[Rfam]
RNA sequence: ACAAAAUAUCUUGCUAGGAGGCCCAUCCCCCUGGGCCUCUUAUAGUGUCCUAUGCUAGAGCCAACUGUGACCCCGAACCAUUGCCUGGCCUCUGUGUCAUUAGGCUGCUGGAACUGAAGUGUGUUGCACAGCA
Dot-bracket structure: ...(.......(..(((.(((((.........)).))).)))..)..)...................((((.(.....((...((((((((..........))))))..))...))....).)))).......
RNA: Small nucleolar RNA SNORA42/SNORA80 family